[Rfam]
Nucleotides: 076
Stems, first nucleotide, its partner, number of pairs: 012037001017032006040070004045066003048061005
Number, partner (000 for none) and nucleotide at each position: 001000u002000g003000a004000u005000u006000g007000a008000a009000a010000a011000c012037g013000c014000a015000a016000u017032c018031u019030g020029u021028c022027g023000g024000c025000a026000a027022c028021g029020g030019c031018a032017g033000g034000a035000c036000a037012c038000a039000a040070a041069g042068c043067u044000u045066c046065c047064c048061g049060a050059c051058u052057c053000u054000u055000a056000g057052g058051a059050g060049u061048c062000a063000g064047g065046g066045g067043a068042g069041u070040u071000a072000c073000c074000a075000a076000u

The record is a 76-nucleotide RNA sequence from Sphingobium sp. SCG-1, which matches "c-di-GMP-I riboswitch aptamer" in Rfam. The match comes from Rfam's covariance-model search (49 bits). About the family: GEMM was predicted in a large-scale screen for bacterial structured RNA regulatory elements. Genes associated with GEMM are involved in a diverse array of functions, including chemotaxis regulation, signal transduction, secretion and chitin. NCBI's taxonomy places the organism under Bacteria, Pseudomonadati, Pseudomonadota, Sphingomonadales, Sphingobium. Its family is annotated with cyclic-di-GMP binding in the Gene Ontology. Pairs were carried over by alignment from the consensus structure, which is taken from published work.